Rfam assigns this 63-nucleotide RNA from Molossus molossus to the family "U7 small nuclear RNA".
RNA sequence: CAGCGCUUACAGCUCUUUUUGAAUUUGUCUAAUAGGCCUUCUGGUUUUCACCAGAAGGCUCUC
Numbered sequence: 001c002a003g004c005g006c007u008u009a010c011a012g013c014u015c016u017u018u019u020u021g022a023a024u025u026u027g028u029c030u031a032a033u034a035g036g037c038c039u040u041c042u043g044g045u046u047u048u049c050a051c052c053a054g055a056a057g058g059c060u061c062u063c
Base pairs, nucleotide, nucleotide: 035060036059037058038057039056040055041054042053043052044051045050
The base pairs follow the family's consensus structure, which was predicted with PFOLD. NCBI's taxonomy places the organism under Eukaryota, Bilateria, Dipnotetrapodomorpha, Chiroptera, Molossus. Rfam 15.1 lists 10,439 matches to the family in 569 species.